[Rfam]
RNA: DUF805 RNA
Organism: Chlorobaculum tepidum
RNA sequence: AAAUAAUGGAGACCAGCGACCAUUUCAAAACGGGGCGACACCGAAAAGCCAAACGAGUAGGGACAUA
Numbered sequence: 001a002a003a004u005a006a007u008g009g010a011g012a013c014c015a016g017c018g019a020c021c022a023u024u025u026c027a028a029a030a031c032g033g034g035g036c037g038a039c040a041c042c043g044a045a046a047a048g049c050c051a052a053a054c055g056a057g058u059a060g061g062g063a064c065a066u067a
Stems, first nucleotide, its partner, number of pairs: 006023004034050003041061002